[Rfam]
RNA sequence: GCACCUGAAUAUUCCCUGCUCCUUGCUGUGCAGUGAAGGUCUGGGGGCAUUUCGUGCUACAGCACAGCAGUGGAAAUCCAGAUGGGUUGUUUGCUACUGGUUUGGAACUCAUCUCUACACCUCUGCAACAUUU
Numbered sequence: 001g002c003a004c005c006u007g008a009a010u011a012u013u014c015c016c017u018g019c020u021c022c023u024u025g026c027u028g029u030g031c032a033g034u035g036a037a038g039g040u041c042u043g044g045g046g047g048c049a050u051u052u053c054g055u056g057c058u059a060c061a062g063c064a065c066a067g068c069a070g071u072g073g074a075a076a077u078c079c080a081g082a083u084g085g086g087u088u089g090u091u092u093g094c095u096a097c098u099g100g101u102u103u104g105g106a107a108c109u110c111a112u113c114u115c116u117a118c119a120c121c122u123c124u125g126c127a128a129c130a131u132u133u
Base pairs, nucleotide, nucleotide: 001057002056003055004054013047014046015045016044017043018042021039022038067126068125069124070123072121080114081113082112083111084110085109086108087107094105095104096103

A member of the RNA family "Small nucleolar RNA SNORA55" from Eubucco bourcierii, 133 nucleotides long. The family's consensus secondary structure was predicted with PFOLD. It is annotated as an H/ACA-box small nucleolar RNA. From the family's description: ACA55 is a member of the H/ACA class of snoRNA that guide the sites of modification of uridines to pseudouridines.